[Rfam]
RNA sequence: AAAACUGUUACCGCAGCUUUUUCACGUAACAGAAGCCGGGGCUUACGGUAACGAAGCCCCG
Number, nucleotide and partner (000 for none) at each position: 001a000002a000003a000004a000005c032006u031007g030008u029009u028010a027011c026012c000013g025014c000015a000016g022017c000018u000019u000020u000021u000022u016023c000024a000025c013026g011027u010028a009029a008030c007031a006032g005033a000034a000035g000036c000037c061038g060039g059040g058041g057042c056043u055044u000045a000046c053047g052048g000049u000050a000051a000052c047053g046054a000055a043056g042057c041058c040059c039060c038061g037
The record is a 61-nucleotide RNA sequence from Pseudomonas salomonii, which matches "Pseudomonas sRNA P36" in Rfam.